[Rfam]
RNA sequence: UAAUGAGAAUAAUAAAAGGACAUGCGCUAACAUGUCCCAAAUGUAGUACCGUUAAAGACGGUAACGAGAUUUUACUUAGUUAAGAA
Numbered sequence: 001u002a003a004u005g006a007g008a009a010u011a012a013u014a015a016a017a018g019g020a021c022a023u024g025c026g027c028u029a030a031c032a033u034g035u036c037c038c039a040a041a042u043g044u045a046g047u048a049c050c051g052u053u054a055a056a057g058a059c060g061g062u063a064a065c066g067a068g069a070u071u072u073u074a075c076u077u078a079g080u081u082a083a084g085a086a
Base pairs, nucleotide, nucleotide: 021034022033023032024031048062049061050060051059052058053057

Shown here is an 86-nucleotide RNA from Vagococcus allomyrinae, a member of the family "RNA anti-toxin A". Taxonomically the source falls in Vagococcus (Bacteria, Bacillati, Lactobacillales, Enterococcaceae). Its family is annotated with mRNA binding and negative regulation of translation in the Gene Ontology. Rfam classes the family as an antitoxin RNA. The family's consensus secondary structure was predicted with RNAalifold.